Shown here is a 302-nucleotide RNA from Galemys pyrenaicus, a member of the family "Metazoan signal recognition particle RNA". It is annotated as a non-coding RNA gene. Rfam's curators write: The signal recognition particle (SRP) is a universally conserved ribonucleoprotein. It is involved in the co-translational targeting of proteins to membranes. For this family Rfam cites "Towards the structure of the mammalian signal recognition particle" (Wild et al., Curr Opin Struct Biol, 2002). A search with the family's covariance model found it, with a score of 155 bits.
[Rfam]
RNA sequence: GCCGGGCGUGGUGGCGCGCGCCUGUUGUCCCAGCUACUCGGGAGGCAGAGGCAGGAAGAUCGCUUGAGUCCAGGAGUUCUGGGCUGUAGUGCGCUAUGCCGAUCGGGUGUCCGCACUAAGUUCGGCAUCAAUAUGGUGACCUCCCGGGAGCGGGGGACCACCAGGUUGCCUAAGGAGGGGUGAACCGGCCCAGGUCGGAAACGGAGCAGGUCAAAACUCCCGUGCUGAUCAAAAUAGACACAUUGUUGUAUUACUUACAAGAAUGAAGUUUUUUUUAAAUAACCAGAGAUUUAAACCCUCAA
Numbered sequence: 001g002c003c004g005g006g007c008g009u010g011g012u013g014g015c016g017c018g019c020g021c022c023u024g025u026u027g028u029c030c031c032a033g034c035u036a037c038u039c040g041g042g043a044g045g046c047a048g049a050g051g052c053a054g055g056a057a058g059a060u061c062g063c064u065u066g067a068g069u070c071c072a073g074g075a076g077u078u079c080u081g082g083g084c085u086g087u088a089g090u091g092c093g094c095u096a097u098g099c100c101g102a103u104c105g106g107g108u109g110u111c112c113g114c115a116c117u118a119a120g121u122u123c124g125g126c127a128u129c130a131a132u133a134u135g136g137u138g139a140c141c142u143c144c145c146g147g148g149a150g151c152g153g154g155g156g157a158c159c160a161c162c163a164g165g166u167u168g169c170c171u172a173a174g175g176a177g178g179g180g181u182g183a184a185c186c187g188g189c190c191c192a193g194g195u196c197g198g199a200a201a202c203g204g205a206g207c208a209g210g211u212c213a214a215a216a217c218u219c220c221c222g223u224g225c226u227g228a229u230c231a232a233a234a235u236a237g238a239c240a241c242a243u244u245g246u247u248g249u250a251u252u253a254c255u256u257a258c259a260a261g262a263a264u265g266a267a268g269u270u271u272u273u274u275u276u277a278a279a280u281a282a283c284c285a286g287a288g289a290u291u292u293a294a295a296c297c298c299u300c301a302a
Stems, first nucleotide, its partner, number of pairs: 001046003004023007028043003048300004056292002059290003063286002067280001069278001072275003079268002083264001085262001087260001089258003093254001096251004106244005112237001115235001117233001120230001122228007129168004134163005141156006169175002177220005187212004195204003